[Rfam]
RNA sequence: CUCUUAUUCAGAGUGGUGGAGGUACAUAGGACCUGCGAAGCCACGGCAACCCCUCAAAGGAAGGUGCCAACCUGAGCGAGCUUUUCGAACAAUAAGAG
Numbered sequence: 001c002u003c004u005u006a007u008u009c010a011g012a013g014u015g016g017u018g019g020a021g022g023u024a025c026a027u028a029g030g031a032c033c034u035g036c037g038a039a040g041c042c043a044c045g046g047c048a049a050c051c052c053c054u055c056a057a058a059g060g061a062a063g064g065u066g067c068c069a070a071c072c073u074g075a076g077c078g079a080g081c082u083u084u085u086c087g088a089a090c091a092a093u094a095a096g097a098g
Stems, first nucleotide, its partner, number of pairs: 001098008013044005021033003027076001030073001045068004050064002052060003077087004

Rfam assigns this 98-nucleotide RNA from Lachnospiraceae bacterium 3_1_57FAA_CT1 to the family "SAM riboswitch aptamer (S box leader)". The match comes from Rfam's covariance-model search (73 bits). The literature on the family includes a 1998 paper in Mol Microbiol by Grundy and Henkin, "The S box regulon: a new global transcription termination control system for methionine and cysteine biosynthesis genes in gram-positive bacteria".